[Rfam]
The family of this 80-nucleotide RNA from Alkalibacter rhizosphaerae is "S10-Clostridia ribosomal protein leader". Lineage of the source: Bacteria > Clostridia > Eubacteriales > Eubacteriaceae > Alkalibacter.
RNA sequence: UUUAUGCGAUGAAGAGAAAGGUUGCUUUUUUCCAGAGGGAAUUUUCUCGGAGUAUGUCCAGAUCAUGAAUCGGACGACGA
Numbered sequence: 001u002u003u004a005u006g007c008g009a010u011g012a013a014g015a016g017a018a019a020g021g022u023u024g025c026u027u028u029u030u031u032c033c034a035g036a037g038g039g040a041a042u043u044u045u046c047u048c049g050g051a052g053u054a055u056g057u058c059c060a061g062a063u064c065a066u067g068a069a070u071c072g073g074a075c076g077a078c079g080a
Stems, first nucleotide, its partner, number of pairs: 014048003018045004025039005055079004061075001063073002

The family's RNA type in Rfam is cis-regulatory leader.
The base pairs follow the family's consensus structure, which is taken from published work.
The literature on the family includes a 2020 paper in BMC Microbiol by Eckert and Weinberg, "Discovery of 20 novel ribosomal leader candidates in bacteria and archaea".